Shown here is a 170-nucleotide RNA sequence from Flavobacterium psychrotolerans, a member of the family "Group II catalytic intron D1-D4-3". The organism belongs to Flavobacterium, within Bacteria.
RNA sequence: UUUGGGGCGACCCAUGCAGUGAAGGAAGCCCAACGGCAAAAGUCUGUACCGAGGAACACAAAGCGCAUAAGAGGCUAGCUAAAUUGGGUAAGCAUGCACAGCAAUGCAAAGCCUAGAGACAACAUAUUUAGUUAGUAGAUGCGUCGGGGAUAGACGGAAAGAGGAAGUGC
Number, nucleotide and partner (000 for none) at each position: 001u016002u000003u014004g013005g012006g011007g000008c000009g000010a000011c006012c005013c004014a003015u000016g001017c000018a000019g000020u000021g000022a000023a000024g000025g000026a000027a000028g170029c169030c000031c167032a000033a000034c000035g000036g000037c161038a000039a000040a000041a000042g155043u154044c153045u152046g151047u149048a000049c147050c146051g145052a000053g000054g000055a000056a000057c000058a000059c000060a000061a000062a000063g144064c143065g142066c141067a140068u139069a000070a000071g000072a000073g000074g136075c135076u134077a000078g132079c131080u130081a129082a128083a127084u126085u000086g114087g113088g112089u111090a000091a000092g107093c106094a105095u104096g000097c000098a000099c000100a000101g000102c000103a000104a095105u094106g093107c092108a000109a000110a000111g089112c088113c087114u086115a000116g000117a000118g000119a000120c000121a000122a000123c000124a000125u000126a084127u083128u082129u081130a080131g079132u078133u000134a076135g075136u074137a000138g000139a068140u067141g066142c065143g064144u063145c051146g050147g049148g000149g047150a000151u046152a045153g044154a043155c042156g000157g000158a000159a000160a000161g037162a000163g000164g000165a000166a000167g031168u000169g029170c028
About the family: Group II introns are found in rRNA, tRNA and mRNA of organelles in fungi, plants and protists, and also in mRNA in bacteria.
A search with the family's covariance model found it, with a score of 116 bits.